[Rfam]
RNA sequence: UAGCAGAACAUGCUGAAUUCCCGAGAGGGAAACGGGGGAACCGACUCAUGGGGUGAAUCCGCGCCGCACGGUGCGGACGGGCAAUCUCCUAAGCCCGAACCCGACAGCUAACUUCGUAAGCAUUUAGGAGACUGCUU
Numbered sequence: 001u002a003g004c005a006g007a008a009c010a011u012g013c014u015g016a017a018u019u020c021c022c023g024a025g026a027g028g029g030a031a032a033c034g035g036g037g038g039a040a041c042c043g044a045c046u047c048a049u050g051g052g053g054u055g056a057a058u059c060c061g062c063g064c065c066g067c068a069c070g071g072u073g074c075g076g077a078c079g080g081g082c083a084a085u086c087u088c089c090u091a092a093g094c095c096c097g098a099a100c101c102c103g104a105c106a107g108c109u110a111a112c113u114u115c116g117u118a119a120g121c122a123u124u125u126a127g128g129a130g131a132c133u134g135c136u137u
Stems, first nucleotide, its partner, number of pairs: 011122004018031003032117006042050002051102003059076004079096004